[Rfam]
The family of this 61-nucleotide RNA from Pristionchus pacificus is "mir-8364 microRNA precursor family". The family's consensus secondary structure was predicted with RNAalifold.
RNA sequence: UCUUCAUUUCACAUGUUCUCUCAUCGGUCAGAGAGGCGAGAGAGUGUGUGCAAUGAAGAGA
Numbered sequence: 001u002c003u004u005c006a007u008u009u010c011a012c013a014u015g016u017u018c019u020c021u022c023a024u025c026g027g028u029c030a031g032a033g034a035g036g037c038g039a040g041a042g043a044g045u046g047u048g049u050g051c052a053a054u055g056a057a058g059a060g061a
Base pairs, nucleotide, nucleotide: 001059002058003057004056005055006054007053010050012048013047014046015045016044017043019041020040021039022038
Dot-bracket structure: (((((((..(.((((((.((((...............)))).)))))).)..)))))))..